Rfam assigns this 96-nucleotide RNA sequence from Paraglaciecola sp. MB-3u-78 to the family "Group II catalytic intron D1-D4-1".
[Rfam]
RNA sequence: CGCAUAACGGUGUAAGCCGUCAUGUGAUUAAGCAGAAGUCAGCAGACGACAUAUUAGCCAAAUGCCCAUCGUAAUGGUUGGGACACGGUGAAGGUC
Numbered sequence: 001c002g003c004a005u006a007a008c009g010g011u012g013u014a015a016g017c018c019g020u021c022a023u024g025u026g027a028u029u030a031a032g033c034a035g036a037a038g039u040c041a042g043c044a045g046a047c048g049a050c051a052u053a054u055u056a057g058c059c060a061a062a063u064g065c066c067c068a069u070c071g072u073a074a075u076g077g078u079u080g081g082g083a084c085a086c087g088g089u090g091a092a093g094g095u096c
Stems, first nucleotide, its partner, number of pairs: 001026002004023002007020005038047003048096003057089003066081003
A search with the family's covariance model found it, with a score of 59 bits. Group II introns are found in rRNA, tRNA and mRNA of organelles in fungi, plants and protists, and also in mRNA in bacteria. Its family is annotated with Group II intron splicing in the Gene Ontology. The pairing is the family consensus, mapped onto this sequence.